[Rfam]
RNA sequence: GCGCCGUCUGAAGAAUCGCUAUCGCAGCUCACGCACAAAGAGCUUUAUGCUCUUCUUCCUCAGCUGUGGGGAAAGUCCCCGGAGAUACAGAGGCUAAUCCUCGUCCAUUCGCAAGCAGAAAGUGCCCAGCUCUAAGCACGCCGGGACAGGACGAGGACGGCGAGAUUUGCUUGCUCAUCGGUCUUGCACAUACUCGCGAGAUCCUUGGCUCCUUCUCACUCACUCUGUUGCGCAUUGAUUUGCUCAUUUCUUGGCGAAGGCCCUUGCAUGCGAAGAUAUGAGCAUGUUCGGUGCUCAAGCAAUGCUGUCGAUCGGUGCGCGCACCGUUGCUCAUAGGCACAGUUAUGCGAUUGCAGACUUGAUGAACUUUUGUUCUCAUGUUGUCAACUCAAUGGGGCUUACUCUCAUUCGGCG
Numbered sequence: 001g002c003g004c005c006g007u008c009u010g011a012a013g014a015a016u017c018g019c020u021a022u023c024g025c026a027g028c029u030c031a032c033g034c035a036c037a038a039a040g041a042g043c044u045u046u047a048u049g050c051u052c053u054u055c056u057u058c059c060u061c062a063g064c065u066g067u068g069g070g071g072a073a074a075g076u077c078c079c080c081g082g083a084g085a086u087a088c089a090g091a092g093g094c095u096a097a098u099c100c101u102c103g104u105c106c107a108u109u110c111g112c113a114a115g116c117a118g119a120a121a122g123u124g125c126c127c128a129g130c131u132c133u134a135a136g137c138a139c140g141c142c143g144g145g146a147c148a149g150g151a152c153g154a155g156g157a158c159g160g161c162g163a164g165a166u167u168u169g170c171u172u173g174c175u176c177a178u179c180g181g182u183c184u185u186g187c188a189c190a191u192a193c194u195c196g197c198g199a200g201a202u203c204c205u206u207g208g209c210u211c212c213u214u215c216u217c218a219c220u221c222a223c224u225c226u227g228u229u230g231c232g233c234a235u236u237g238a239u240u241u242g243c244u245c246a247u248u249u250c251u252u253g254g255c256g257a258a259g260g261c262c263c264u265u266g267c268a269u270g271c272g273a274a275g276a277u278a279u280g281a282g283c284a285u286g287u288u289c290g291g292u293g294c295u296c297a298a299g300c301a302a303u304g305c306u307g308u309c310g311a312u313c314g315g316u317g318c319g320c321g322c323a324c325c326g327u328u329g330c331u332c333a334u335a336g337g338c339a340c341a342g343u344u345a346u347g348c349g350a351u352u353g354c355a356g357a358c359u360u361g362a363u364g365a366a367c368u369u370u371u372g373u374u375c376u377c378a379u380g381u382u383g384u385c386a387a388c389u390c391a392a393u394g395g396g397g398c399u400u401a402c403u404c405u406c407a408u409u410c411g412g413c414g
Stems, first nucleotide, its partner, number of pairs: 002414005009407003014352006022069007038054006073400003077397004115125003230320006240311003252307004293300002
Dot-bracket structure: .(((((..(((..((((((..(((((((.........((((((.....))))))........)))))))...[[[.[[[[..................................(((.....)))........................................................................................................((((((....(((.........((((.....................................((....))...)))).)))...))))))..........................)))))).........................................]]]]]]]....)))..)))))
RNase MRP: a 414-nucleotide RNA from Athelia sp. TMB. The match comes from Rfam's covariance-model search (96 bits). The base pairs follow the family's consensus structure, which is taken from published work. Its family is annotated with ribonuclease MRP activity, rRNA processing and ribonuclease MRP complex in the Gene Ontology. Its Rfam clan is "RNaseP clan". It is annotated as a ribozyme. From the family's description: RNase MRP is an enzymatically active ribonucleoprotein with two distinct roles in eukaryotes. In mitochondria it plays a direct role in the initiation of mitochondrial DNA replication. In the nucleus it is involved in precursor rRNA processing, where it cleaves the internal transcribed spacer 1 between 18S and 5.8S rRNAs. Despite distinct functions, RNase MRP has been shown to be evolutionarily related to RNase P. Like eukaryotic RNase P, RNase MRP is not catalytically active without associated protein subunits. The organism belongs to Athelia, within Eukaryota.